[Rfam]
RNA: Brucella sRNA 140
RNA sequence: AUCAACCGACUGAUAAAAAGACGGCCCAUCGUCUCGACGCCAAUGUCGCAGGGAAUGAGAGCCGGACCGAACAACCGAAAGGACAACAAAUGUU
Numbered sequence: 001a002u003c004a005a006c007c008g009a010c011u012g013a014u015a016a017a018a019a020g021a022c023g024g025c026c027c028a029u030c031g032u033c034u035c036g037a038c039g040c041c042a043a044u045g046u047c048g049c050a051g052g053g054a055a056u057g058a059g060a061g062c063c064g065g066a067c068c069g070a071a072c073a074a075c076c077g078a079a080a081g082g083a084c085a086a087c088a089a090a091u092g093u094u
Stems, first nucleotide, its partner, number of pairs: 001014004022064004026059001027057003032052003035048004075082002
Dot-bracket structure: ((((......)))).......((((((((..(((((((......)))).)))..))).).))))..........((....))............